[Rfam]
RNA sequence: CUGCAGCCAAUGGAGCCGACCGUGCUGGGGCCUCCUCCCCGUGGCGCCCGGUGUGCAGCGGAUGCAAACAGCAGCCUCCUGGGCAGUGUGCAGCCUGUUGCUUGUACAGGCUGCCCUAAGGGGCCCUGGAGACAGCC
Numbered sequence: 001c002u003g004c005a006g007c008c009a010a011u012g013g014a015g016c017c018g019a020c021c022g023u024g025c026u027g028g029g030g031c032c033u034c035c036u037c038c039c040c041g042u043g044g045c046g047c048c049c050g051g052u053g054u055g056c057a058g059c060g061g062a063u064g065c066a067a068a069c070a071g072c073a074g075c076c077u078c079c080u081g082g083g084c085a086g087u088g089u090g091c092a093g094c095c096u097g098u099u100g101c102u103u104g105u106a107c108a109g110g111c112u113g114c115c116c117u118a119a120g121g122g123g124c125c126c127u128g129g130a131g132a133c134a135g136c137c
Base pairs, nucleotide, nucleotide: 002057003056004055005054019052020051021050022049025046026043082125083124084123091113092112093111094110095109096108